[Rfam]
RNA sequence: AGCCUAACCCUUUCAAUUUUGAAGGUAUGGUUAAAAACCACGUGAAUAAAGACGGUCUCAUGAUCGGUACUAUUCACGUGGUCUAUUAGGGAAACCUUAUAGGAUGCUCGCAAGAGUGUC
Numbered sequence: 001a002g003c004c005u006a007a008c009c010c011u012u013u014c015a016a017u018u019u020u021g022a023a024g025g026u027a028u029g030g031u032u033a034a035a036a037a038c039c040a041c042g043u044g045a046a047u048a049a050a051g052a053c054g055g056u057c058u059c060a061u062g063a064u065c066g067g068u069a070c071u072a073u074u075c076a077c078g079u080g081g082u083c084u085a086u087u088a089g090g091g092a093a094a095c096c097u098u099a100u101a102g103g104a105u106g107c108u109c110g111c112a113a114g115a116g117u118g119u120c
Base pairs, nucleotide, nucleotide: 001032002031003030004029009025010024012023013022014021015020038081039080040079041078042077043076044075045074046073047072048071051068053066054065055064056063057062083102084101085100086099088097089096090095103120104119105118106117107116108115
RNA: LOOT RNA